The record is an 88-nucleotide RNA sequence from Actinotalea bogoriensis, which matches "ZMP/ZTP riboswitch aptamer (pfl RNA motif)" in Rfam. The organism belongs to Actinotalea bogoriensis, within Bacteria. Rfam links the family to the GO terms one-carbon metabolic process and regulation of purine nucleotide biosynthetic process. It scores 53 bits against the family's covariance model. The base pairs follow the family's consensus structure, which is taken from published work.
RNA sequence: GUGCCCGGCCGUGACUGGCGUAGGUGGAACCGACCACCGGGGAGCGGCCGUUCCUCCCUGCAGCGCACCGCCCGCCUGGGUGCCUGGG
Numbered sequence: 001g002u003g004c005c006c007g008g009c010c011g012u013g014a015c016u017g018g019c020g021u022a023g024g025u026g027g028a029a030c031c032g033a034c035c036a037c038c039g040g041g042g043a044g045c046g047g048c049c050g051u052u053c054c055u056c057c058c059u060g061c062a063g064c065g066c067a068c069c070g071c072c073c074g075c076c077u078g079g080g081u082g083c084c085u086g087g088g
Stems, first nucleotide, its partner, number of pairs: 003053001006050007015041002017076004024037004065083005
Dot-bracket structure: ..(..(((((((..(([[[[...((((......))))..))..)))))))..)...........(((((...]]]]..))))).....